Annotation:
This 110-nucleotide RNA from Bacillus sp. FJAT-49736 belongs to the Rfam family "TPP riboswitch aptamer (THI element)". The family's consensus secondary structure is taken from published work.

[Rfam]
RNA sequence: UUAGACUACUAGGGGUGCCCUGUUUUGGGCUGAGAGAAGAACGGAAAGUUUUUUAACCCUUUGGACCUGAUCUGGUUAAUACCAGCGUAGGAAAGUAGCAGGGUACAGAU
Numbered sequence: 001u002u003a004g005a006c007u008a009c010u011a012g013g014g015g016u017g018c019c020c021u022g023u024u025u026u027g028g029g030c031u032g033a034g035a036g037a038a039g040a041a042c043g044g045a046a047a048g049u050u051u052u053u054u055a056a057c058c059c060u061u062u063g064g065a066c067c068u069g070a071u072c073u074g075g076u077u078a079a080u081a082c083c084a085g086c087g088u089a090g091g092a093a094a095g096u097a098g099c100a101g102g103g104u105a106c107a108g109a110u
Stems, first nucleotide, its partner, number of pairs: 006098005011060004017030004037053005066091004072085004
A search with the family's covariance model found it, with a score of 82 bits. Its family is annotated with thiamine pyrophosphate binding in the Gene Ontology. The source organism's lineage runs through Bacteria, Bacillati, Bacillota, Bacillaceae and Bacillus.